[Rfam]
RNA sequence: UCACGAUAACGGCAAACUUCUCCGAAAGGAAAGGACGCAAAGCCACGGGCCUACGCACAAUCUUUUGUGCUUGGCAGCCGGGUUACCGAA
Numbered sequence: 001u002c003a004c005g006a007u008a009a010c011g012g013c014a015a016a017c018u019u020c021u022c023c024g025a026a027a028g029g030a031a032a033g034g035a036c037g038c039a040a041a042g043c044c045a046c047g048g049g050c051c052u053a054c055g056c057a058c059a060a061u062c063u064u065u066u067g068u069g070c071u072u073g074g075c076a077g078c079c080g081g082g083u084u085a086c087c088g089a090a
Base pairs, nucleotide, nucleotide: 012038013037017033018032019031021030022029023028041084042083043082044081046080047079048078049075050074051073056069057068058067059066
Dot-bracket structure: ...........((...(((.(((....))))))...))..((((.((((((....((((......))))...)))..)))))))......
Rfam assigns this 90-nucleotide RNA sequence from Planococcus lenghuensis to the family "c-di-GMP-I riboswitch aptamer". The source organism's lineage runs through Bacteria, Bacillati, Bacilli, Caryophanales and Planococcus.